RNA: 6S-Flavo RNA
RNA sequence: ACUCAACACUAACAUUUUAGAAUGAGCGAAUCAUCACUACUAAAGCAUGCCACGCUUCGGCGAGGAAACUUGAACAGUGAGUUAGCUCAAAACUUGUCUUUUCGAGUUU
Numbered sequence: 001a002c003u004c005a006a007c008a009c010u011a012a013c014a015u016u017u018u019a020g021a022a023u024g025a026g027c028g029a030a031u032c033a034u035c036a037c038u039a040c041u042a043a044a045g046c047a048u049g050c051c052a053c054g055c056u057u058c059g060g061c062g063a064g065g066a067a068a069c070u071u072g073a074a075c076a077g078u079g080a081g082u083u084a085g086c087u088c089a090a091a092a093c094u095u096g097u098c099u100u101u102u103c104g105a106g107u108u109u
Base pairs, nucleotide, nucleotide: 023089024088025087026086027085034080035079036078037077038076043071044070045069050065051064053062